[Rfam]
RNA sequence: AGAGUCGACCAGAUGAUCGCUGCCGCGCAAGCGGGAGAGGAAAGUCCGGGCUCCACAGGACAGGGUGCCAGGUAACGCCUGGGCGGAGAAAUCCGACGGAAAGUGCCGCAGAAAAGAUACCGCCUAAGCCCCUCGGGGCCGGUAAGGGUGAAAUGGUGCGGUAAGGGCGCACCGCGCAACUGGCAACAGUUGUGGCAUGGUAAACCCCACCCGGAGCAAGACCAAAUAGGAAAGCGUGCACUUGUUGCAGUCUGUGGUCCGCAGGCGCUUUCGGGUAGGUCGCUCGAGGGAUGUGGCGACGCAUCCCCUAGAUGAAUGAUUAUCCACGACAGAACCCGGCUUAUCGGUCGGCUCUCACC
Numbered sequence: 001a002g003a004g005u006c007g008a009c010c011a012g013a014u015g016a017u018c019g020c021u022g023c024c025g026c027g028c029a030a031g032c033g034g035g036a037g038a039g040g041a042a043a044g045u046c047c048g049g050g051c052u053c054c055a056c057a058g059g060a061c062a063g064g065g066u067g068c069c070a071g072g073u074a075a076c077g078c079c080u081g082g083g084c085g086g087a088g089a090a091a092u093c094c095g096a097c098g099g100a101a102a103g104u105g106c107c108g109c110a111g112a113a114a115a116g117a118u119a120c121c122g123c124c125u126a127a128g129c130c131c132c133u134c135g136g137g138g139c140c141g142g143u144a145a146g147g148g149u150g151a152a153a154u155g156g157u158g159c160g161g162u163a164a165g166g167g168c169g170c171a172c173c174g175c176g177c178a179a180c181u182g183g184c185a186a187c188a189g190u191u192g193u194g195g196c197a198u199g200g201u202a203a204a205c206c207c208c209a210c211c212c213g214g215a216g217c218a219a220g221a222c223c224a225a226a227u228a229g230g231a232a233a234g235c236g237u238g239c240a241c242u243u244g245u246u247g248c249a250g251u252c253u254g255u256g257g258u259c260c261g262c263a264g265g266c267g268c269u270u271u272c273g274g275g276u277a278g279g280u281c282g283c284u285c286g287a288g289g290g291a292u293g294u295g296g297c298g299a300c301g302c303a304u305c306c307c308c309u310a311g312a313u314g315a316a317u318g319a320u321u322a323u324c325c326a327c328g329a330c331a332g333a334a335c336c337c338g339g340c341u342u343a344u345c346g347g348u349c350g351g352c353u354c355u356c357a358c359c
Base pairs, nucleotide, nucleotide: 001355002354003353004352005351006350007349008348009347010346011344012324013323014322015321016320017319018318020037021036023034024033025032026031042342043341044340046339047338048337049336050335051216052215053214054213058260059259060258061257063212064211065210066209067208068082069081070080071079072078083097084095085094086093087092098207099206103205104204105201106200107199120147121146122143123142124141128139129138130137131136155173156172157171158170159169160168174196175194176193177192178191179190180189181188182187220281221280222279223278230272231271232270233269234268235267251265252264253263254262255261288307289306290305291304292303293302294301295300
The family of this 359-nucleotide RNA sequence from a Solemya velum gill symbiont is "Bacterial RNase P class A".
The base pairs follow the family's consensus structure, which is taken from published work.
Lineage of the source: Bacteria > Pseudomonadati > Pseudomonadota > Gammaproteobacteria > sulfur-oxidizing symbionts.
Rfam classes the family as a ribozyme.